[Rfam]
RNA: Small nucleolar RNA CD11
RNA sequence: GUUAGUUUCCAUGAUGAUUGAUCGGAGCAGAAGAGUUCUUGAAGACUAUAUUCAUCACCCAAUGCUGAUAUUUGUU
Numbered sequence: 001g002u003u004a005g006u007u008u009c010c011a012u013g014a015u016g017a018u019u020g021a022u023c024g025g026a027g028c029a030g031a032a033g034a035g036u037u038c039u040u041g042a043a044g045a046c047u048a049u050a051u052u053c054a055u056c057a058c059c060c061a062a063u064g065c066u067g068a069u070a071u072u073u074g075u076u
Stems, first nucleotide, its partner, number of pairs: 001072001003070001030038003